The record is a 118-nucleotide sequence from Clostridium paridis, which matches "Ribosomal protein L20 leader" in Rfam.
Pairs were carried over by alignment from the consensus structure, which was predicted with CMfinder.
NCBI's taxonomy places the organism under Bacteria, Bacillati, Clostridia, Eubacteriales, Clostridium.
The match comes from Rfam's covariance-model search (70 bits).
RNA sequence: UGAGUAAAGAAGAAACAGCCGUUUCUCACCUUACAGCAUUGCUAGUAGGGUUAUGUUAUCCCAUAUAAUUUUUGAAUUGGAUAAUUAAGGACGGCGUAUGCCGUCCUUUUAUUGUUUU
Numbered sequence: 001u002g003a004g005u006a007a008a009g010a011a012g013a014a015a016c017a018g019c020c021g022u023u024u025c026u027c028a029c030c031u032u033a034c035a036g037c038a039u040u041g042c043u044a045g046u047a048g049g050g051u052u053a054u055g056u057u058a059u060c061c062c063a064u065a066u067a068a069u070u071u072u073u074g075a076a077u078u079g080g081a082u083a084a085u086u087a088a089g090g091a092c093g094g095c096g097u098a099u100g101c102c103g104u105c106c107u108u109u110u111a112u113u114g115u116u117u118u
Stems, first nucleotide, its partner, number of pairs: 011026006028051003033046002036042002090105006